[Rfam]
RNA sequence: GAGUUAGCGAUGAUUAUAAAAAUAAUUCCUCAUUCUAAUUUCUUUAAUUUAUACAUGAUAAACCUCUUAUUACACCUAUAGAAUUUGAGCUAU
Dot-bracket structure: ..((.((..................................................................................))))
A member of the RNA family "Small nucleolar RNA snoR8a" from Theobroma cacao, 93 nucleotides long. Pairs were carried over by alignment from the consensus structure, which was predicted with WAR. For this family Rfam cites "Multiple snoRNA gene clusters from Arabidopsis" (Brown et al., RNA, 2001). The organism belongs to Theobroma, within Eukaryota. Rfam links the family to the GO terms RNA processing and nucleolus.